[Rfam]
RNA: c-di-GMP-I riboswitch aptamer
Organism: Natranaerobius thermophilus
RNA sequence: UUGUUAUCGGGGCAAACCUAAUGAAAGUUAGGGACGCAAAGCCAUGGGUCUAAGGCACUUUAUUGUAUAUAUAAUUAAAUUGCUAGGACUGCCAGGCUGCCGCA
Numbered sequence: 001u002u003g004u005u006a007u008c009g010g011g012g013c014a015a016a017c018c019u020a021a022u023g024a025a026a027g028u029u030a031g032g033g034a035c036g037c038a039a040a041g042c043c044a045u046g047g048g049u050c051u052a053a054g055g056c057a058c059u060u061u062a063u064u065g066u067a068u069a070u071a072u073a074a075u076u077a078a079a080u081u082g083c084u085a086g087g088a089c090u091g092c093c094a095g096g097c098u099g100c101c102g103c104a
Stems, first nucleotide, its partner, number of pairs: 012037002017032006040098004045094003048089003055083003